Overview:
Rfam assigns this 112-nucleotide sequence from Sporosarcina limicola to the family "SAM riboswitch aptamer (S box leader)".

RNA sequence: UUCUUAUCUAGAGAGAUCGAGGGACAGGCCCUAUGACAUCUCGGCAGCAGGUUCAUGACGAAUGAACACUGUGCCAACUCCUGCAAAUGCUCUGGCAUUUGGAAGAUGAGAA
Numbered sequence: 001u002u003c004u005u006a007u008c009u010a011g012a013g014a015g016a017u018c019g020a021g022g023g024a025c026a027g028g029c030c031c032u033a034u035g036a037c038a039u040c041u042c043g044g045c046a047g048c049a050g051g052u053u054c055a056u057g058a059c060g061a062a063u064g065a066a067c068a069c070u071g072u073g074c075c076a077a078c079u080c081c082u083g084c085a086a087a088u089g090c091u092c093u094g095g096c097a098u099u100u101g102g103a104a105g106a107u108g109a110g111a112a
Base pairs, nucleotide, nucleotide: 001112002111003110004109005108006107007106008105013042014041015040016039017038021031022030023029025083026082027081028080043075044074045073046072048071049070051067052066053065054064079104084101085100086099087098088097089096
Its family is annotated with regulation of gene expression in the Gene Ontology. The SAM riboswitch is found upstream of a number of genes which code for proteins involved in methionine or cysteine biosynthesis in Gram-positive bacteria.